[Rfam]
Shown here is an 84-nucleotide RNA sequence from Christensenella minuta, a member of the family "c-di-GMP-I riboswitch aptamer".

RNA sequence: GCGCGAUCAGGGCAAAACCGUAGAAAUACGGCGACGCAAAGUCAGGGGCCUAAACUGCUUGCAGCACGGCAGCCGAUUGCCUUU
Numbered sequence: 001g002c003g004c005g006a007u008c009a010g011g012g013c014a015a016a017a018c019c020g021u022a023g024a025a026a027u028a029c030g031g032c033g034a035c036g037c038a039a040a041g042u043c044a045g046g047g048g049c050c051u052a053a054a055c056u057g058c059u060u061g062c063a064g065c066a067c068g069g070c071a072g073c074c075g076a077u078u079g080c081c082u083u084u
Base pairs, nucleotide, nucleotide: 012037013036018031019030020029021028022027040078041077042076043075046074047073048070049069050068055064056063057062
The organism belongs to Christensenella, within Bacteria.